[Rfam]
RNA sequence: UUGGUGUUUUAGGAGCUUCAAUUCGCUCCAAACUUGGGUGGAAAGAAGGCUCAAAACUCGUCUGCUGGUUCAUGGAUUCCUUUUAAGUGCAAUAUUACCUAUAAUGUGCAUUCUAAGGGUGUGCAUGAACUAGGAGAUGAGGCUACCUUCUUCUUUACUAGAUUGGAAUGAAGGGAGCUCCUAAUCACCAUCAC
Numbered sequence: 001u002u003g004g005u006g007u008u009u010u011a012g013g014a015g016c017u018u019c020a021a022u023u024c025g026c027u028c029c030a031a032a033c034u035u036g037g038g039u040g041g042a043a044a045g046a047a048g049g050c051u052c053a054a055a056a057c058u059c060g061u062c063u064g065c066u067g068g069u070u071c072a073u074g075g076a077u078u079c080c081u082u083u084u085a086a087g088u089g090c091a092a093u094a095u096u097a098c099c100u101a102u103a104a105u106g107u108g109c110a111u112u113c114u115a116a117g118g119g120u121g122u123g124c125a126u127g128a129a130c131u132a133g134g135a136g137a138u139g140a141g142g143c144u145a146c147c148u149u150c151u152u153c154u155u156u157a158c159u160a161g162a163u164u165g166g167a168a169u170g171a172a173g174g175g176a177g178c179u180c181c182u183a184a185u186c187a188c189c190a191u192c193a194c
Base pairs, nucleotide, nucleotide: 013180014179015178016177017176018175019174024170025169027167028166029165030164062136063135065133066132067131071127072126073125074124079119

A member of the RNA family "MIR159 microRNA precursor family" from Papaver nudicaule, 194 nucleotides long. Rfam 15.1 lists 3,649 matches to the family in 242 species. The literature on the family includes a 2004 paper in Mol Cell by Jones-Rhoades and Bartel, "Computational identification of plant microRNAs and their targets, including a stress-induced miRNA". The base pairs follow the family's consensus structure, which was predicted with WAR. Lineage of the source: Eukaryota > Magnoliopsida > Mesangiospermae > Ranunculales > Papaver. Gene Ontology terms of the family: miRNA-mediated post-transcriptional gene silencing and RISC complex.